[Rfam]
The family of this 123-nucleotide RNA sequence from Natronoglycomyces albus is "ZMP/ZTP riboswitch aptamer (pfl RNA motif)".
The base pairs follow the family's consensus structure, which is taken from published work.
The match comes from Rfam's covariance-model search (51 bits).
Taxonomically the source falls in Natronoglycomyces (Bacteria, Bacillati, Actinomycetes, Glycomycetaceae).
RNA sequence: CGGAUGCGUCGCAACUGGCGAACGGGCCCGUCUGAGGCGAGCCUGAGGUGGAGCACCACCGGGGAGCGACACGAACAAUGAGCACCGUCUGUCCGGUGCCAGUCGAACGCCUGGGCUGCUGAA
Numbered sequence: 001c002g003g004a005u006g007c008g009u010c011g012c013a014a015c016u017g018g019c020g021a022a023c024g025g026g027c028c029c030g031u032c033u034g035a036g037g038c039g040a041g042c043c044u045g046a047g048g049u050g051g052a053g054c055a056c057c058a059c060c061g062g063g064g065a066g067c068g069a070c071a072c073g074a075a076c077a078a079u080g081a082g083c084a085c086c087g088u089c090u091g092u093c094c095g096g097u098g099c100c101a102g103u104c105g106a107a108c109g110c111c112u113g114g115g116c117u118g119c120u121g122a123a
Stems, first nucleotide, its partner, number of pairs: 005073002008070005015063002017111004048059004100118005